[Rfam]
RNA sequence: AAUGGAAGAAAGCUUAGUUCCCGAUUGACCUCGGGAAGCGGGGGAACCAUUUCCUUGGGGCGUAUCACUUUUGUGUGUAGGGAACCAUCUUUCCCGAGCCCGUCAGCUAACCUCGUCAGCUCUAGAUGGGUCGAACU
Dot-bracket structure: ..........((((...(((((((......)))))))((((((....((......))(((.....(((......)))..((((........))))...))).........)))))).))))................